[Rfam]
RNA: L4-Archaeoglobi ribosomal protein leades
Organism: Halogranum rubrum
RNA sequence: CUGAAGGCCGCGUCCGGGUCAAUUGCGGAAUGCAACACCCGAUCUCCCUCAUCACCCCCGACGGAAUGUCGGUGGGCGAGGGAGAGCGCGUCACCGUCAG
Numbered sequence: 001c002u003g004a005a006g007g008c009c010g011c012g013u014c015c016g017g018g019u020c021a022a023u024u025g026c027g028g029a030a031u032g033c034a035a036c037a038c039c040c041g042a043u044c045u046c047c048c049u050c051a052u053c054a055c056c057c058c059c060g061a062c063g064g065a066a067u068g069u070c071g072g073u074g075g076g077c078g079a080g081g082g083a084g085a086g087c088g089c090g091u092c093a094c095c096g097u098c099a100g
Base pairs, nucleotide, nucleotide: 001100002099003098004097009090010089011088012087013086015041016040017039018038023035024034025033026032027031043085044084045083046082047081052079053078055076056075057074